Bacterial RNase P class A: a 396-nucleotide RNA from Myxococcus xanthus. The family's RNA type in Rfam is ribozyme. NCBI's taxonomy places the organism under Bacteria, Pseudomonadati, Myxococcales, Myxococcaceae, Myxococcus xanthus. The base pairs follow the family's consensus structure, which is taken from published work. Its Rfam clan is "RNaseP clan".

RNA sequence: GGAGCGGCCCGGGUGAACGCCGGUCACCGCAGUCAUGGGUGGCGGGAGGAAAGUCCGAGCUCCAGAGGGCAGGGUGCUGGCUAACGGCCAGUCGAGGCGACUCGCAGGAAAGUGCCACAGAAAACAGACCGCCCGUUCCGAAAGGGGCGGGUAAGGGUGAAACGGUGCGGUAAGAGCGCACCGCGUCCGGGGUGACUCGGACGGCUCGGUAAACCCCACCUGGAGCAAGAGCCAAUAGGAGCGCGUCCUCGCCGUACGGAGGACAGGGAUGGCCCGUCCCAUGCGUUCGGGUUGCUCGCUGAUGAGGCCCCUGGGCAACCAGGGCCCUAGAUGAAUGUUCACCGCCCAUCCCGAAAGGGGUGGGAACAGAACUCGGCUUACACGGCCGCUCCGGCG
Numbered sequence: 001g002g003a004g005c006g007g008c009c010c011g012g013g014u015g016a017a018c019g020c021c022g023g024u025c026a027c028c029g030c031a032g033u034c035a036u037g038g039g040u041g042g043c044g045g046g047a048g049g050a051a052a053g054u055c056c057g058a059g060c061u062c063c064a065g066a067g068g069g070c071a072g073g074g075u076g077c078u079g080g081c082u083a084a085c086g087g088c089c090a091g092u093c094g095a096g097g098c099g100a101c102u103c104g105c106a107g108g109a110a111a112g113u114g115c116c117a118c119a120g121a122a123a124a125c126a127g128a129c130c131g132c133c134c135g136u137u138c139c140g141a142a143a144g145g146g147g148c149g150g151g152u153a154a155g156g157g158u159g160a161a162a163c164g165g166u167g168c169g170g171u172a173a174g175a176g177c178g179c180a181c182c183g184c185g186u187c188c189g190g191g192g193u194g195a196c197u198c199g200g201a202c203g204g205c206u207c208g209g210u211a212a213a214c215c216c217c218a219c220c221u222g223g224a225g226c227a228a229g230a231g232c233c234a235a236u237a238g239g240a241g242c243g244c245g246u247c248c249u250c251g252c253c254g255u256a257c258g259g260a261g262g263a264c265a266g267g268g269a270u271g272g273c274c275c276g277u278c279c280c281a282u283g284c285g286u287u288c289g290g291g292u293u294g295c296u297c298g299c300u301g302a303u304g305a306g307g308c309c310c311c312u313g314g315g316c317a318a319c320c321a322g323g324g325c326c327c328u329a330g331a332u333g334a335a336u337g338u339u340c341a342c343c344g345c346c347c348a349u350c351c352c353g354a355a356a357g358g359g360g361u362g363g364g365a366a367c368a369g370a371a372c373u374c375g376g377c378u379u380a381c382a383c384g385g386c387c388g389c390u391c392c393g394g395c396g
Base pairs, nucleotide, nucleotide: 001392002391003390004389005388006387007386008385009384011381012343013342014341015340016339017338018337020046021045023043024042025041026040027039028038051379052378053377055376056375057374058373059372060225061224062223063222067275068274069273070272072221073220074219075218076217077091078090079089080088081087092106093104094103095102096101107216108215112214113213114210115209116208129156130155131152132151133150134149135148136147137146138145139144164182165181166180167179168178169177183205184203185202186201187200188199189198190197191196229297230296231295232294239288240287241286242285243284244283266280267279268278269277270276306326307325308324309323311322312321313320314319